[Rfam]
Nucleotides: 114
Stems, first nucleotide, its partner, number of pairs: 001114002004111002007108005014101002018097001020095002037077004050062001
Number, partner (000 for none) and nucleotide at each position: 001114g002113u003000g004111g005110g006000a007108u008107a009106c010105g011104g012000a013000g014101a015100c016000a017000u018097g019000c020095a021094c022000c023000c024000c025000g026000u027000g028000a029000c030000u031000a032000u033000u034000g035000g036000g037077g038076g039075c040074a041000a042000a043000a044000u045000a046000g047000u048000g049000g050062g051000g052000u053000c054000c055000c056000u057000g058000u059000g060000c061000g062050c063000a064000a065000u066000a067000g068000c069000g070000g071000g072000c073000g074040u075039g076038c077037u078000g079000a080000c081000c082000a083000u084000u085000g086000c087000c088000u089000u090000a091000c092000c093000g094021g095020u096000a097018c098000c099000a100015g101014u102000g103000a104011u105010u106009g107008u108007g109000u110005c111004c112000a113002a114001c
Potassium channel RNA editing signal: a 114-nucleotide sequence from Oryzias javanicus.
The match comes from Rfam's covariance-model search (106 bits).